Shown here is an 84-nucleotide sequence from Myotis myotis, a member of the family "mir-9195 microRNA precursor family". Pairs were carried over by alignment from the consensus structure, which was predicted with RNAalifold.

RNA sequence: AGAGGCCCUCCGUGGCCGGGGUGGAACGCUUGCCUCGUCACUGUGGCGAAGCAAGCAUUCCGCCAGGCCGCUCAUGCUGCCCAC
Numbered sequence: 001a002g003a004g005g006c007c008c009u010c011c012g013u014g015g016c017c018g019g020g021g022u023g024g025a026a027c028g029c030u031u032g033c034c035u036c037g038u039c040a041c042u043g044u045g046g047c048g049a050a051g052c053a054a055g056c057a058u059u060c061c062g063c064c065a066g067g068c069c070g071c072u073c074a075u076g077c078u079g080c081c082c083a084c
Stems, first nucleotide, its partner, number of pairs: 004081003012071006020064007028056006037047004